[Rfam]
RNA sequence: AUAAAAAAAGGCUGUUCCUCAGGGUAAAGGAACAGCCCGUCCGCACUAUAUGACGGACUAUGGGAGAGGAGAAACCGGAGGAAGAACUUAUGGGGAAACGUAAGUCUUCUCCGCGG
Numbered sequence: 001a002u003a004a005a006a007a008a009a010g011g012c013u014g015u016u017c018c019u020c021a022g023g024g025u026a027a028a029g030g031a032a033c034a035g036c037c038c039g040u041c042c043g044c045a046c047u048a049u050a051u052g053a054c055g056g057a058c059u060a061u062g063g064g065a066g067a068g069g070a071g072a073a074a075c076c077g078g079a080g081g082a083a084g085a086a087c088u089u090a091u092g093g094g095g096a097a098a099c100g101u102a103a104g105u106c107u108u109c110u111c112c113g114c115g116g
Base pairs, nucleotide, nucleotide: 011036012035013034014033015032016031017030018029019028037064038063039058040057041056042055043054076113077112078111079110081109082108083107084106086105087104088103089102090101
The record is a 116-nucleotide sequence from Salibacterium qingdaonense, which matches "ylbH leader" in Rfam. On this family, see Barrick et al., Proc Natl Acad Sci U S A 2004: "New RNA motifs suggest an expanded scope for riboswitches in bacterial genetic control". Rfam classes the family as a cis-regulatory leader. Rfam's curators write: This family is a putative regulatory RNA structure that is found upstream of the ylbH gene in B. subtilis and related low GC Gram-positive bacteria.